RNA sequence: GAUCAAGAGUUCCGACGCGAAGCCCUGGCUCGUCGGACGGCAACCCCCUCCGUGGCGGGGUGCCCCAGGUGAAGAUCCGGCCCCGUGCAUCAGUGCGGGGCAAGCACGGCGC
Numbered sequence: 001g002a003u004c005a006a007g008a009g010u011u012c013c014g015a016c017g018c019g020a021a022g023c024c025c026u027g028g029c030u031c032g033u034c035g036g037a038c039g040g041c042a043a044c045c046c047c048c049u050c051c052g053u054g055g056c057g058g059g060g061u062g063c064c065c066c067a068g069g070u071g072a073a074g075a076u077c078c079g080g081c082c083c084c085g086u087g088c089a090u091c092a093g094u095g096c097g098g099g100g101c102a103a104g105c106a107c108g109g110c111g112c
Stems, first nucleotide, its partner, number of pairs: 001077004009038001011037006021030002039064003044060003047055002080101009
This 112-nucleotide RNA from Arthrobacter sp. MN05-02 belongs to the Rfam family "SAM (S-adenosyl methionine) riboswitch aptamer". Rfam describes the family as follows. SAM-IV is a mRNA element that regulates gene expression via direct sensing of S-adenosylmethionine (SAM or AdoMet). SAM-IV riboswitches share conserved nucleotide positions with the previously described SAM-I riboswitches sequence analysis and molecular recognition experiments suggest that SAM-I and SAM-IV riboswitches share similar ligand binding sites, but have different scaffolds. The family has 40 seed sequences and 2,360 matches in Rfam 15.1. NCBI's taxonomy places the organism under Bacteria, Bacillati, Actinomycetota, Actinomycetes, Arthrobacter.